RNA sequence: CCUAUUGUUCUUCCAAUAGUAUCCUACCGGGACAACUGGCGUGUGGUGCAGCCACUGCGGGUUGAAGCUCCCGGGAUAAGUGUACCAAUCACCCGGAUUUCGUAUCCCAUGGGCGUGGCAGGAAACCGCAAGGCAGACUGUCAUCGGGGUCUUAGACCGAUUAAGGGC
Numbered sequence: 001c002c003u004a005u006u007g008u009u010c011u012u013c014c015a016a017u018a019g020u021a022u023c024c025u026a027c028c029g030g031g032a033c034a035a036c037u038g039g040c041g042u043g044u045g046g047u048g049c050a051g052c053c054a055c056u057g058c059g060g061g062u063u064g065a066a067g068c069u070c071c072c073g074g075g076a077u078a079a080g081u082g083u084a085c086c087a088a089u090c091a092c093c094c095g096g097a098u099u100u101c102g103u104a105u106c107c108c109a110u111g112g113g114c115g116u117g118g119c120a121g122g123a124a125a126c127c128g129c130a131a132g133g134c135a136g137a138c139u140g141u142c143a144u145c146g147g148g149g150u151c152u153u154a155g156a157c158c159g160a161u162u163a164a165g166g167g168c
Base pairs, nucleotide, nucleotide: 002019003018004017005016006015007014028073029072030071031070032069033064034063035062036061037060039058040057041056044054045053046052047051090115092113093112094111117142118141119140120139126133127132143161144160145159146158147157
A member of the RNA family "Group II catalytic intron D1-D4-7" from Marinilabilia rubra, 168 nucleotides long. From the family's description: Group II introns are found in rRNA, tRNA and mRNA of organelles in fungi, plants and protists, and also in mRNA in bacteria. Rfam links the family to the GO term Group II intron splicing. On this family, see Bonen and Vogel, Trends Genet 2001: "The ins and outs of group II introns". It scores 58 bits against the family's covariance model.